[Rfam]
RNA sequence: GGUACCUGCCGUGAACGCUCGCAUAGUACGAGAGGAACUGCGAGUGGUCGCCACUGGUGUACCGGUUGUCCGGAAGGGCAGAUGCCGGGUAGCUACGCGACACGGGGUAAGAGCUGAACGCAUCUAAGCUCGAAACCCACACGCAAAAGAGGUACCGUAGAGGUCCCUCCUAGAAGAGGAGGUAGAUAGACUCGGGGUGUACGCACCGAGGGAACGAGGUGUUGAGCCCACGAGAACUAACAGACCGAG
Numbered sequence: 001g002g003u004a005c006c007u008g009c010c011g012u013g014a015a016c017g018c019u020c021g022c023a024u025a026g027u028a029c030g031a032g033a034g035g036a037a038c039u040g041c042g043a044g045u046g047g048u049c050g051c052c053a054c055u056g057g058u059g060u061a062c063c064g065g066u067u068g069u070c071c072g073g074a075a076g077g078g079c080a081g082a083u084g085c086c087g088g089g090u091a092g093c094u095a096c097g098c099g100a101c102a103c104g105g106g107g108u109a110a111g112a113g114c115u116g117a118a119c120g121c122a123u124c125u126a127a128g129c130u131c132g133a134a135a136c137c138c139a140c141a142c143g144c145a146a147a148a149g150a151g152g153u154a155c156c157g158u159a160g161a162g163g164u165c166c167c168u169c170c171u172a173g174a175a176g177a178g179g180a181g182g183u184a185g186a187u188a189g190a191c192u193c194g195g196g197g198u199g200u201a202c203g204c205a206c207c208g209a210g211g212g213a214a215c216g217a218g219g220u221g222u223u224g225a226g227c228c229c230a231c232g233a234g235a236a237c238u239a240a241c242a243g244a245c246c247g248a249g
Stems, first nucleotide, its partner, number of pairs: 001156007010143004016046008047101005055095003062088005067080005104138003111131005162246004166182005187239003191234004195229003203222005210215001
Dot-bracket structure: (((((((..((((..((((((((...............))))))))(((((...(((....((((((((((....)))))...)))))....))).)))))..(((....(((((...........)))))....))).))))......))))))).....(((((((((.......)))))....(((.(((((((.....(((((..(....)..)))))....))).))))..)))...))))...
RNA: Archaeal large subunit ribosomal RNA, nucleotides 2658 to 2906
Organism: Halalkaliarchaeum desulfuricum